[Rfam]
RNA sequence: GGGAGAGUUUGGCGCGCUGGUGCGGUCCCGGGACUUCAAAUCCCGUGAGGGGUCCUGUUAGGGGUCCCUGGAGGGUUCGAUUCCCUCACUCUCCC
Numbered sequence: 001g002g003g004a005g006a007g008u009u010u011g012g013c014g015c016g017c018u019g020g021u022g023c024g025g026u027c028c029c030g031g032g033a034c035u036u037c038a039a040a041u042c043c044c045g046u047g048a049g050g051g052g053u054c055c056u057g058u059u060a061g062g063g064g065u066c067c068c069u070g071g072a073g074g075g076u077u078c079g080a081u082u083c084c085c086u087c088a089c090u091c092u093c094c095c
Stems, first nucleotide, its partner, number of pairs: 001095008012027001015024003029045005048069007072086004
RNA: Selenocysteine transfer RNA